RNA sequence: CCAGCCAUGCCACUGGCUGUACGCUACGAAGACGUGCGGGUGGGUAACUGCCCGUACUAAGCAUUCGGACAACGUACCGAAAUCCACCUCAAUCGUGAGAGGAAGGUGGUUCCGUUAGCAUCAAACGGAAUAGGGC
Numbered sequence: 001c002c003a004g005c006c007a008u009g010c011c012a013c014u015g016g017c018u019g020u021a022c023g024c025u026a027c028g029a030a031g032a033c034g035u036g037c038g039g040g041u042g043g044g045u046a047a048c049u050g051c052c053c054g055u056a057c058u059a060a061g062c063a064u065u066c067g068g069a070c071a072a073c074g075u076a077c078c079g080a081a082a083u084c085c086a087c088c089u090c091a092a093u094c095g096u097g098a099g100a101g102g103a104a105g106g107u108g109g110u111u112c113c114g115u116u117a118g119c120a121u122c123a124a125a126c127g128g129a130a131u132a133g134g135g136c
Stems, first nucleotide, its partner, number of pairs: 002019006028066003034057010084109004093100002111129006
Dot-bracket structure: .((((((......))))))........(((...((((((((((....))))))))))......))).................((((.....((....)).....)))).((((((.......)))))).......
Description: This 136-nucleotide sequence from Fibrella aestuarina belongs to the Rfam family "Group II catalytic intron D1-D4-7". The match comes from Rfam's covariance-model search (88 bits). From the family's description: Group II introns are found in rRNA, tRNA and mRNA of organelles in fungi, plants and protists, and also in mRNA in bacteria. A reference for the family is Bonen and Vogel (2001), "The ins and outs of group II introns", Trends Genet. The base pairs follow the family's consensus structure.